[Rfam]
RNA sequence: CUCUGUUACUGAAAACCGAGUACGGGCGUUGGGGGGAACUCUACGCCCGCUUCCGUGUGUUAAGGGUAAAAUAAAUAUG
Numbered sequence: 001c002u003c004u005g006u007u008a009c010u011g012a013a014a015a016c017c018g019a020g021u022a023c024g025g026g027c028g029u030u031g032g033g034g035g036g037a038a039c040u041c042u043a044c045g046c047c048c049g050c051u052u053c054c055g056u057g058u059g060u061u062a063a064g065g066g067u068a069a070a071a072u073a074a075a076u077a078u079g
Stems, first nucleotide, its partner, number of pairs: 003018001005016001019052002023049006031041003
Shown here is a 79-nucleotide RNA sequence from Arsenophonus endosymbiont of Bemisia tabaci, a member of the family "tpke11". The match comes from Rfam's covariance-model search (45 bits). Rfam describes the family as follows. In Yersinia located in ICR upstream dnaJ (chaperone)gene. Has temperature responsive RNA structure. Pairs were carried over by alignment from the consensus structure, which was predicted with WAR. On this family, see Rivas et al., Curr Biol 2001: "Computational identification of noncoding RNAs in E. coli by comparative genomics".